[Rfam]
RNA: mir-460 microRNA precursor family
Organism: Cyclopterus lumpus
RNA sequence: CCUCACAGCUCCUGCAUUGUACACACUGUGCGUAGAAGUUACGUCAGCACAGCGCAUACAAUGUGGAUGCUGUGCUA
Numbered sequence: 001c002c003u004c005a006c007a008g009c010u011c012c013u014g015c016a017u018u019g020u021a022c023a024c025a026c027u028g029u030g031c032g033u034a035g036a037a038g039u040u041a042c043g044u045c046a047g048c049a050c051a052g053c054g055c056a057u058a059c060a061a062u063g064u065g066g067a068u069g070c071u072g073u074g075c076u077a
Stems, first nucleotide, its partner, number of pairs: 012066002015063007024054001026052006